[Rfam]
RNA sequence: UUAGCGGUGACGCUAUGGGUGAAGGAAGUGGCUAGCGAGUUUUCCGAGCCUACGUACAGAAACCUGGUCAGGCCAAAUGGUGGAUGAGACUGCAGCACAAGUUAAAGUCCAAAGGACAACCGUAAAACCAAGACGGUAAACCAGGGGGCAGUGGAAAAUUAAAGAUGAAUGU
Numbered sequence: 001u002u003a004g005c006g007g008u009g010a011c012g013c014u015a016u017g018g019g020u021g022a023a024g025g026a027a028g029u030g031g032c033u034a035g036c037g038a039g040u041u042u043u044c045c046g047a048g049c050c051u052a053c054g055u056a057c058a059g060a061a062a063c064c065u066g067g068u069c070a071g072g073c074c075a076a077a078u079g080g081u082g083g084a085u086g087a088g089a090c091u092g093c094a095g096c097a098c099a100a101g102u103u104a105a106a107g108u109c110c111a112a113a114g115g116a117c118a119a120c121c122g123u124a125a126a127a128c129c130a131a132g133a134c135g136g137u138a139a140a141c142c143a144g145g146g147g148g149c150a151g152u153g154g155a156a157a158a159u160u161a162a163a164g165a166u167g168a169a170u171g172u
Stems, first nucleotide, its partner, number of pairs: 002015005028172003036164001040158005046152001048149004063145005072137003078130004082110004088103004
This 172-nucleotide sequence from Lactobacillus crispatus belongs to the Rfam family "Group II catalytic intron D1-D4-3". Pairs were carried over by alignment from the consensus structure. The source organism's lineage runs through Bacteria, Bacillati, Lactobacillales, Lactobacillaceae and Lactobacillus crispatus. Rfam's curators put it in the seed alignment.